[Rfam]
RNA sequence: UGCGGCCAUGCGGGAGAGUGUCCGGCCCGACCGGACCGCCGAAGGAGCAACCGCCCCGGAAUCUCUCAGGUCCAAGGACCGCAUGGCCGGA
Numbered sequence: 001u002g003c004g005g006c007c008a009u010g011c012g013g014g015a016g017a018g019u020g021u022c023c024g025g026c027c028c029g030a031c032c033g034g035a036c037c038g039c040c041g042a043a044g045g046a047g048c049a050a051c052c053g054c055c056c057c058g059g060a061a062u063c064u065c066u067c068a069g070g071u072c073c074a075a076g077g078a079c080c081g082c083a084u085g086g087c088c089g090g091a
Stems, first nucleotide, its partner, number of pairs: 006086008020036004038071003041067002045065003051059002
Dot-bracket structure: .....((((((((......((((.........)))).(((((..(((...((.....))...))))).))).......)))))))).....
About this RNA: The record is a 91-nucleotide RNA sequence from Rhizorhabdus dicambivorans, which matches "Glycine riboswitch aptamer" in Rfam. It scores 68 bits against the family's covariance model. Rfam describes the family as follows. This family represents the bacterial glycine riboswitch. Glycine riboswitches usually consist of two metabolite-binding aptamers domains with similar structures in tandem. The aptamers cooperatively bind glycine to regulate the expression of downstream genes. In Bacillus subtilis, this riboswitch is found upstream of the gcvT operon which controls glycine degradation. The pairing is the family consensus, mapped onto this sequence. NCBI's taxonomy places the organism under Bacteria, Pseudomonadota, Sphingomonadales, Rhizorhabdaceae, Rhizorhabdus.